[Rfam]
This 81-nucleotide RNA sequence from Juglans regia belongs to the Rfam family "Small nucleolar RNA R21".
RNA sequence: AAUCCCUGUGAAGAAUUAUAUGAAAAUUAAAAGUAGUGGACUGAAUUUCCAUUUGAUGAGAGCAUUGGAUUCUGAGGGAUG
Numbered sequence: 001a002a003u004c005c006c007u008g009u010g011a012a013g014a015a016u017u018a019u020a021u022g023a024a025a026a027u028u029a030a031a032a033g034u035a036g037u038g039g040a041c042u043g044a045a046u047u048u049c050c051a052u053u054u055g056a057u058g059a060g061a062g063c064a065u066u067g068g069a070u071u072c073u074g075a076g077g078g079a080u081g
Base pairs, nucleotide, nucleotide: 002080003079004078005077006076
The family's RNA type in Rfam is C/D-box small nucleolar RNA. Lineage of the source: Eukaryota > Streptophyta > Mesangiospermae > Fagales > Juglans. Rfam links the family to the GO terms nucleolus and RNA processing.